[Rfam]
RNA sequence: GGUCACGAGUUCCAGUCAUGACUGCCCUGGCUGACUGGACGGCAACCCUGGCGGGGGUGCCCCAGGUGACGACCCGGCGCGAGACGCGCAACCCGCAAUCGAGGAGA
Numbered sequence: 001g002g003u004c005a006c007g008a009g010u011u012c013c014a015g016u017c018a019u020g021a022c023u024g025c026c027c028u029g030g031c032u033g034a035c036u037g038g039a040c041g042g043c044a045a046c047c048c049u050g051g052c053g054g055g056g057g058u059g060c061c062c063c064a065g066g067u068g069a070c071g072a073c074c075c076g077g078c079g080c081g082a083g084a085c086g087c088g089c090a091a092c093c094c095g096c097a098a099u100c101g102a103g104g105a106g107a
Stems, first nucleotide, its partner, number of pairs: 001074004009040001011039006024031001041061003046057003077096003081092001
Shown here is a 107-nucleotide RNA from Occultella aeris, a member of the family "SAM (S-adenosyl methionine) riboswitch aptamer". The organism belongs to Occultella, within Bacteria. It scores 65 bits against the family's covariance model.